[Rfam]
RNA: mir-7 microRNA precursor family
RNA sequence: AUCUGGUUGACGGUUUGGAAGACUAGUGAUUUUGUUGACUUGGACAUAAUUGUCGUUUCUUGUCAACUCACACUAGUUUCCCGUACUGCAUCGGAU
Numbered sequence: 001a002u003c004u005g006g007u008u009g010a011c012g013g014u015u016u017g018g019a020a021g022a023c024u025a026g027u028g029a030u031u032u033u034g035u036u037g038a039c040u041u042g043g044a045c046a047u048a049a050u051u052g053u054c055g056u057u058u059c060u061u062g063u064c065a066a067c068u069c070a071c072a073c074u075a076g077u078u079u080c081c082c083g084u085a086c087u088g089c090a091u092c093g094g095a096u
Stems, first nucleotide, its partner, number of pairs: 002095005008090002011088004016083003020079004026073003030070001034067006
Dot-bracket structure: .(((((.((.((((.(((.((((..(((.(...((((((......................))))))..))))..)))).))).))))))))))).